[Rfam]
RNA sequence: GGCGGGCACGCGCCGGAACAACUCAUGGCCAUACUCCGUAUGGCAGCGCCUUUAACCGGGCGUGGGAUCCUUGAGCCGGGGGCCCGCCCUUAU
Numbered sequence: 001g002g003c004g005g006g007c008a009c010g011c012g013c014c015g016g017a018a019c020a021a022c023u024c025a026u027g028g029c030c031a032u033a034c035u036c037c038g039u040a041u042g043g044c045a046g047c048g049c050c051u052u053u054a055a056c057c058g059g060g061c062g063u064g065g066g067a068u069c070c071u072u073g074a075g076c077c078g079g080g081g082g083c084c085c086g087c088c089c090u091u092a093u
Stems, first nucleotide, its partner, number of pairs: 001088007011080001013079004022075004027070001028044007047062004
A member of the RNA family "DUF3800-VII RNA" from Sulfurifustis variabilis, 93 nucleotides long. The match comes from Rfam's covariance-model search (78 bits). Pairs were carried over by alignment from the consensus structure, which is taken from published work. Rfam classes the family as a small RNA.